[Rfam]
RNA: mir-128 microRNA precursor family
Organism: Petromyzon marinus
RNA sequence: GGGUGCCUGAGGAGGAGGCCGCAACGCUGCCUGGGAGUGAUGAGCCCUGUCCUCUCACAGUGAACCGGUCUCUUUCCCUGGCAGCCC
Numbered sequence: 001g002g003g004u005g006c007c008u009g010a011g012g013a014g015g016a017g018g019c020c021g022c023a024a025c026g027c028u029g030c031c032u033g034g035g036a037g038u039g040a041u042g043a044g045c046c047c048u049g050u051c052c053u054c055u056c057a058c059a060g061u062g063a064a065c066c067g068g069u070c071u072c073u074u075u076c077c078c079u080g081g082c083a084g085c086c087c
Stems, first nucleotide, its partner, number of pairs: 006081002009078001015072007025062005033056005